[Rfam]
RNA sequence: UGCCCUUGGAAACCAAGCGUGGGUGUGGCCUGAAAAACAAAUAUGGCGACCCAUCCUUAGUUUCUUAGGUUC
Numbered sequence: 001u002g003c004c005c006u007u008g009g010a011a012a013c014c015a016a017g018c019g020u021g022g023g024u025g026u027g028g029c030c031u032g033a034a035a036a037a038c039a040a041a042u043a044u045g046g047c048g049a050c051c052c053a054u055c056c057u058u059a060g061u062u063u064c065u066u067a068g069g070u071u072c
Base pairs, nucleotide, nucleotide: 002071004069005068006067009064010063011062012061013060016057017056021052022051023050024049028047029046030045
RNA: mir-551 microRNA precursor family